Overview:
Rfam assigns this 53-nucleotide RNA from Sandaracinobacter neustonicus to the family "ffh sRNA".

RNA sequence: GUGUCCAAGGAUGCACGCCGGUCAGCGAAGGUUCGCCCACCGGCGCGUUUUGC
Numbered sequence: 001g002u003g004u005c006c007a008a009g010g011a012u013g014c015a016c017g018c019c020g021g022u023c024a025g026c027g028a029a030g031g032u033u034c035g036c037c038c039a040c041c042g043g044c045g046c047g048u049u050u051u052g053c
Stems, first nucleotide, its partner, number of pairs: 016045007025036004
On this family, see Meyer et al., BMC Genomics 2009: "Identification of candidate structured RNAs in the marine organism 'Candidatus Pelagibacter ubique'". Pairs were carried over by alignment from the consensus structure, which is taken from published work. NCBI's taxonomy places the organism under Bacteria, Pseudomonadota, Sphingomonadales, Sphingosinicellaceae, Sandaracinobacter.